[Rfam]
RNA sequence: AGAGGGGCUGUAAACAUCCUUGACUGGAAGCUGGGGUUUGGACAAUGAAGGCUUUCAGUCAGAUGUUUGCAGCAUCUUA
Numbered sequence: 001a002g003a004g005g006g007g008c009u010g011u012a013a014a015c016a017u018c019c020u021u022g023a024c025u026g027g028a029a030g031c032u033g034g035g036g037u038u039u040g041g042a043c044a045a046u047g048a049a050g051g052c053u054u055u056c057a058g059u060c061a062g063a064u065g066u067u068u069g070c071a072g073c074a075u076c077u078u079a
Base pairs, nucleotide, nucleotide: 002078003077004076005075008072009071010070011069012068013067014066015065016064017063018062023059024058025057026056027055028054029053030052031051032050
This 79-nucleotide sequence from Echeneis naucrates belongs to the Rfam family "mir-30 microRNA precursor family". The organism belongs to Echeneis, within Eukaryota. From the family's description: This family consists of the mammalian microRNA (miRNA) precursor mir-30a. Animal miRNAs are transcribed as ~70nt precursors and subsequently processed by the Dicer enzyme to give a ~22nt product. In this case the mature sequence comes from both the 3' (miR-30) and 5' (mir-97-6) arms of the precursor. The extents of the hairpin precursors are not generally known and are estimated based on hairpin prediction.